[Rfam]
RNA: HNH endonuclease-associated RNA and ORF (HEARO) RNA
Organism: Kamptonema sp. PCC 6506
RNA sequence: GUCAGUAACCCCGCUCUCGUAGACGGAGCUUGUAUGAGCAAUCAUGGAAGCUGUACUGACCAGACCACCCUGAGCGCAAUCGAAGGGUAGCCGUUAUUUGGGUCAUAACACCUGGGAAUGCGACGCUAGUUCCCCGCUCUGUUAUCUGCAAUUAAACAGUUUUAAGGUCACUGAAACAGUGUUGCAGGUCGAACAAGCCCGAAUAACAAGGUCGAAGCAAACAUCAC
Numbered sequence: 001g002u003c004a005g006u007a008a009c010c011c012c013g014c015u016c017u018c019g020u021a022g023a024c025g026g027a028g029c030u031u032g033u034a035u036g037a038g039c040a041a042u043c044a045u046g047g048a049a050g051c052u053g054u055a056c057u058g059a060c061c062a063g064a065c066c067a068c069c070c071u072g073a074g075c076g077c078a079a080u081c082g083a084a085g086g087g088u089a090g091c092c093g094u095u096a097u098u099u100g101g102g103u104c105a106u107a108a109c110a111c112c113u114g115g116g117a118a119u120g121c122g123a124c125g126c127u128a129g130u131u132c133c134c135c136g137c138u139c140u141g142u143u144a145u146c147u148g149c150a151a152u153u154a155a156a157c158a159g160u161u162u163u164a165a166g167g168u169c170a171c172u173g174a175a176a177c178a179g180u181g182u183u184g185c186a187g188g189u190c191g192a193a194c195a196a197g198c199c200c201g202a203a204u205a206a207c208a209a210g211g212u213c214g215a216a217g218c219a220a221a222c223a224u225c226a227c
Base pairs, nucleotide, nucleotide: 001060002059003058004057005056006055007054010028012025013024015022029046031044032043063213064212065211066210068087069086070085071084093207094206095205096204097203098202099201100200101199102198103197108142109141112136114134115133116132117131118130119129125218126217127216144189145188146187147186148185149184150183151182152181156180157179159177160176161175162174163173164172166171